[Rfam]
RNA sequence: GAUUCUAUGAUGACACCUUUGUAUGCAUUGCUUGGAAAAUCUGAACAAAAUGAGUGAGAACACUCUAUUGUCUCCUCAUCGAAAGAGAGGUCC
Numbered sequence: 001g002a003u004u005c006u007a008u009g010a011u012g013a014c015a016c017c018u019u020u021g022u023a024u025g026c027a028u029u030g031c032u033u034g035g036a037a038a039a040u041c042u043g044a045a046c047a048a049a050a051u052g053a054g055u056g057a058g059a060a061c062a063c064u065c066u067a068u069u070g071u072c073u074c075c076u077c078a079u080c081g082a083a084a085g086a087g088a089g090g091u092c093c
Base pairs, nucleotide, nucleotide: 001092002091003090005089026056027055028054029053032048033047034046
Source information: The family of this 93-nucleotide sequence from Lipotes vexillifer is "Small nucleolar RNA SNORD116". The organism belongs to Lipotes, within Eukaryota. Its family is annotated with RNA processing and nucleolus in the Gene Ontology. The family's RNA type in Rfam is C/D-box small nucleolar RNA.